[Rfam]
RNA sequence: CUUUAUGAUGAUCACCAUAUUCAUAAGCAUAGUUCACCUGAAAUCUUCGGAUUGCUGAACGACAACCAUAUACCAUCUUUCACCUUUAUCUGAUA
Numbered sequence: 001c002u003u004u005a006u007g008a009u010g011a012u013c014a015c016c017a018u019a020u021u022c023a024u025a026a027g028c029a030u031a032g033u034u035c036a037c038c039u040g041a042a043a044u045c046u047u048c049g050g051a052u053u054g055c056u057g058a059a060c061g062a063c064a065a066c067c068a069u070a071u072a073c074c075a076u077c078u079u080u081c082a083c084c085u086u087u088a089u090c091u092g093a094u095a
Base pairs, nucleotide, nucleotide: 006019008018009017010016032060033059034058035057036056042053043052044051045050
This 95-nucleotide RNA sequence from Aspergillus rambellii belongs to the Rfam family "A. fumigatus snoRNA Afu_263". Its Rfam clan is "SNORD77 clan". NCBI's taxonomy places the organism under Eukaryota, Dikarya, Eurotiomycetidae, Aspergillus, Aspergillus subgen. Nidulantes. On this family, see Jochl et al., Nucleic Acids Res 2008: "Small ncRNA transcriptome analysis from Aspergillus fumigatus suggests a novel mechanism for regulation of protein synthesis".